[Rfam]
RNA sequence: GGCCACCUGCGGUCCCGUCACGGGGCGAGGGGGCUAACACAUAGGUCGGGGCAACCCGACCGUCUGCUAACGGAAGACAGAAA
Numbered sequence: 001g002g003c004c005a006c007c008u009g010c011g012g013u014c015c016c017g018u019c020a021c022g023g024g025g026c027g028a029g030g031g032g033g034c035u036a037a038c039a040c041a042u043a044g045g046u047c048g049g050g051g052c053a054a055c056c057c058g059a060c061c062g063u064c065u066g067c068u069a070a071c072g073g074a075a076g077a078c079a080g081a082a083a
Stems, first nucleotide, its partner, number of pairs: 001035004006031003044061007
A member of the RNA family "L2-Alphaproteobacteria ribosomal protein leader" from Citreicella sp. C3M06, 83 nucleotides long. Taxonomically the source falls in Citreicella (Bacteria, Pseudomonadota, Alphaproteobacteria, Rhodobacterales). The family's consensus secondary structure is taken from published work.